[Rfam]
RNA sequence: GCGCUGGUUUAGCUCAGUGGUUACUUCGAACAAACUUUCUCGAAUUACUGUCCCUCCGCAGGAUCGAAACCUCGGGCGCUGUCCAGUGUUUUU
Numbered sequence: 001g002c003g004c005u006g007g008u009u010u011a012g013c014u015c016a017g018u019g020g021u022u023a024c025u026u027c028g029a030a031c032a033a034a035c036u037u038u039c040u041c042g043a044a045u046u047a048c049u050g051u052c053c054c055u056c057c058g059c060a061g062g063a064u065c066g067a068a069a070c071c072u073c074g075g076g077c078g079c080u081g082u083c084c085a086g087u088g089u090u091u092u093u
Stems, first nucleotide, its partner, number of pairs: 002088006012077004017073001019071002025068005